[Rfam]
Shown here is a 167-nucleotide sequence from Roseburia zhanii, a member of the family "Clostridiales-1 RNA". A search with the family's covariance model found it, with a score of 145 bits.

RNA sequence: UGAUACCAGGUUCAAAAGGUUUUAACCACAUGAGCUUGCCCAUAUGUGGUUAGAAACCUUCUUGAACCGCCCCAAUAUGAGCAUAAAAGUGGAAUGAGAAUCCCACGAUAUGCGAAUAUUGGGAAGGAUUGUGGGAGUGCGGAGCACGGAGCAAUCCGCAGGUAUCA
Numbered sequence: 001u002g003a004u005a006c007c008a009g010g011u012u013c014a015a016a017a018g019g020u021u022u023u024a025a026c027c028a029c030a031u032g033a034g035c036u037u038g039c040c041c042a043u044a045u046g047u048g049g050u051u052a053g054a055a056a057c058c059u060u061c062u063u064g065a066a067c068c069g070c071c072c073c074a075a076u077a078u079g080a081g082c083a084u085a086a087a088a089g090u091g092g093a094a095u096g097a098g099a100a101u102c103c104c105a106c107g108a109u110a111u112g113c114g115a116a117u118a119u120u121g122g123g124a125a126g127g128a129u130u131g132u133g134g135g136a137g138u139g140c141g142g143a144g145c146a147c148g149g150a151g152c153a154a155u156c157c158g159c160a161g162g163u164a165u166c167a
Stems, first nucleotide, its partner, number of pairs: 001167007010067004016060007023052007030043003034039001071123008081113004089106004094101002126157007137147004
It is annotated as a small RNA.